[Rfam]
RNA sequence: UGAAUAAACAUCAUUGAGUGCAGCGUUGAUGUAAGUUUACUUAUUUUAUUCCAUUGUUGAAUGAAUUAAAAUGAUACAGAAUACAUCAGCGUUGCAUUCAAUUAUGUUUUUC
Numbered sequence: 001u002g003a004a005u006a007a008a009c010a011u012c013a014u015u016g017a018g019u020g021c022a023g024c025g026u027u028g029a030u031g032u033a034a035g036u037u038u039a040c041u042u043a044u045u046u047u048a049u050u051c052c053a054u055u056g057u058u059g060a061a062u063g064a065a066u067u068a069a070a071a072u073g074a075u076a077c078a079g080a081a082u083a084c085a086u087c088a089g090c091g092u093u094g095c096a097u098u099c100a101a102u103u104a105u106g107u108u109u110u111u112c
Stems, first nucleotide, its partner, number of pairs: 006109006013102016030085003
Annotation: Shown here is a 112-nucleotide sequence from Arabidopsis lyrata, a member of the family "MIR397 microRNA precursor family". A reference for the family is Mica et al. (2009), "High throughput approaches reveal splicing of primary microRNA transcripts and tissue specific expression of mature microRNAs in Vitis vinifera", BMC Genomics. Lineage of the source: Eukaryota > Tracheophyta > Mesangiospermae > Arabidopsis > Arabidopsis lyrata. Rfam links the family to the GO terms miRNA-mediated post-transcriptional gene silencing and RISC complex. A search with the family's covariance model found it, with a score of 99 bits. The family's consensus secondary structure was predicted with WAR. Rfam 15.1 lists 496 matches to the family in 218 species.